A member of the RNA family "Mammalian CPEB3 ribozyme" from Alligator sinensis, 76 nucleotides long.
A search with the family's covariance model found it, with a score of 46 bits.
The family's consensus secondary structure is taken from published work.
[Rfam]
RNA sequence: GGUUGCAAGUUUGAGGCCAUAGCAGAAGUGUCCUUGGCGUGGCCUGUCAGAUUCCAACAAAUCUGCAAGUUCUGCU
Numbered sequence: 001g002g003u004u005g006c007a008a009g010u011u012u013g014a015g016g017c018c019a020u021a022g023c024a025g026a027a028g029u030g031u032c033c034u035u036g037g038c039g040u041g042g043c044c045u046g047u048c049a050g051a052u053u054c055c056a057a058c059a060a061a062u063c064u065g066c067a068a069g070u071u072c073u074g075c076u
Stems, first nucleotide, its partner, number of pairs: 015044004021076007028040003048065006